[Rfam]
RNA sequence: UGGCUCGGACAGGGACCUGGAAACGAGGGACUCCGUGAGGAAGAGGGCGUAAAGGACGGUCGACUGCUAACGAAGACAAAAGGAGUCAAACUUUUCCAAUCACCGCGGGAACCUGCCGUGUCAGGAUCGAAGGUAAGUGACGCGUCCGAAAUGGGACAAGAAUUAAGCCAACAUCAAAUAUAUGUAGGACAAUUAAAAGAGGCUUUAAAGAUACGAGGACUAAAGGUUAAAGGUAGUGAUUUGUUUAAAUUUUUUGAUUUGUAAAAGACACUCAGGCCCAAAUGCAAUAUGACCCU
Numbered sequence: 001u002g003g004c005u006c007g008g009a010c011a012g013g014g015a016c017c018u019g020g021a022a023a024c025g026a027g028g029g030a031c032u033c034c035g036u037g038a039g040g041a042a043g044a045g046g047g048c049g050u051a052a053a054g055g056a057c058g059g060u061c062g063a064c065u066g067c068u069a070a071c072g073a074a075g076a077c078a079a080a081a082g083g084a085g086u087c088a089a090a091c092u093u094u095u096c097c098a099a100u101c102a103c104c105g106c107g108g109g110a111a112c113c114u115g116c117c118g119u120g121u122c123a124g125g126a127u128c129g130a131a132g133g134u135a136a137g138u139g140a141c142g143c144g145u146c147c148g149a150a151a152u153g154g155g156a157c158a159a160g161a162a163u164u165a166a167g168c169c170a171a172c173a174u175c176a177a178a179u180a181u182a183u184g185u186a187g188g189a190c191a192a193u194u195a196a197a198a199g200a201g202g203c204u205u206u207a208a209a210g211a212u213a214c215g216a217g218g219a220c221u222a223a224a225g226g227u228u229a230a231a232g233g234u235a236g237u238g239a240u241u242u243g244u245u246u247a248a249a250u251u252u253u254u255u256g257a258u259u260u261g262u263a264a265a266a267g268a269c270a271c272u273c274a275g276g277c278c279c280a281a282a283u284g285c286a287a288u289a290u291g292a293c294c295c296u
Base pairs, nucleotide, nucleotide: 006028033047034046036044090134091133092132094131095130100126101124104120105119106118107117108116142157145155146154147153148152164207165206166205167203168202169201214256215255216254217253218252219251221249224242225241226240227239228238229237265296267294
Dot-bracket structure: .....(.....................)....((.(.......).))..........................................(((.((....((..(((((.......)))))...).)...))))).......(..((((...)))).)......((((((...............................))).)))......((((((.(..((((((.......))))))......).))))))........(.(..........................).)